The family of this 73-nucleotide RNA from Xanthomonas campestris is "Xanthomonas sRNA sX9". Rfam classes the family as a small RNA. Rfam 15.1 lists 309 matches to the family in 52 species.
[Rfam]
RNA sequence: AUGCACCCUCGUGCACUCCGGUUCCUCAGUGCCGCCCGCCUUGCGCGACGGUUGUUAGCGACGUUUCGCAGCC
Number, nucleotide and partner (000 for none) at each position: 001a000002u015003g014004c013005a012006c011007c000008c000009u000010c000011g006012u005013g004014c003015a002016c000017u000018c000019c034020g033021g032022u031023u000024c029025c000026u000027c000028a000029g024030u000031g022032c021033c020034g019035c000036c000037c000038g000039c000040c000041u000042u000043g000044c000045g072046c071047g000048a000049c068050g067051g066052u000053u000054g000055u000056u000057a000058g000059c000060g000061a000062c000063g000064u000065u000066u051067c050068g049069c000070a000071g046072c045073c000